[Rfam]
Rfam assigns this 111-nucleotide RNA sequence from Paeniglutamicibacter gangotriensis to the family "SAM (S-adenosyl methionine) riboswitch aptamer".

RNA sequence: CUUCACGAGAUGCGUCGGCAAGCUCCGACUAAGACGCACACCAACCCGCAGUUCAUGGGUGGUUCGGAUGAAGAAGCGGCCGUGGCCACGAGGCGCCGGCAAGAGCUAGCG
Numbered sequence: 001c002u003u004c005a006c007g008a009g010a011u012g013c014g015u016c017g018g019c020a021a022g023c024u025c026c027g028a029c030u031a032a033g034a035c036g037c038a039c040a041c042c043a044a045c046c047c048g049c050a051g052u053u054c055a056u057g058g059g060u061g062g063u064u065c066g067g068a069u070g071a072a073g074a075a076g077c078g079g080c081c082g083u084g085g086c087c088a089c090g091a092g093g094c095g096c097c098g099g100c101a102a103g104a105g106c107u108a109g110c111g
Base pairs, nucleotide, nucleotide: 001076002075003074004073009039011038012037013036014035015034016033021030022029040063041062042061045059046058047057079100080099081098082097085094086093087092
Annotation
Taxonomically the source falls in Paeniglutamicibacter gangotriensis (Bacteria, Bacillati, Actinomycetes, Micrococcaceae). Clan: SAM clan. Rfam's curators write: SAM-IV is a mRNA element that regulates gene expression via direct sensing of S-adenosylmethionine (SAM or AdoMet).